[Rfam]
RNA sequence: UAACGAACGGGGAGCAUCGACGCGCGGCUCUUCCUUUGGUCGCCCGAACCGCGCCGAGCCACUGGCGAGCCCGACCCGUCUCACU
Numbered sequence: 001u002a003a004c005g006a007a008c009g010g011g012g013a014g015c016a017u018c019g020a021c022g023c024g025c026g027g028c029u030c031u032u033c034c035u036u037u038g039g040u041c042g043c044c045c046g047a048a049c050c051g052c053g054c055c056g057a058g059c060c061a062c063u064g065g066c067g068a069g070c071c072c073g074a075c076c077c078g079u080c081u082c083a084c085u
Base pairs, nucleotide, nucleotide: 005081007079008078009077010076011075014059015058022054023053024052025051026050027049029047038072039071040068041067042066043065044064
The record is an 85-nucleotide sequence, which matches "c-di-GMP-II-GCG riboswitch aptamer" in Rfam. Its Rfam clan is "c-di-GMP_II riboswitch clan". The literature on the family includes a 2017 paper in Proc Natl Acad Sci U S A by Weinberg et al., "Bioinformatic analysis of riboswitch structures uncovers variant classes with altered ligand specificity".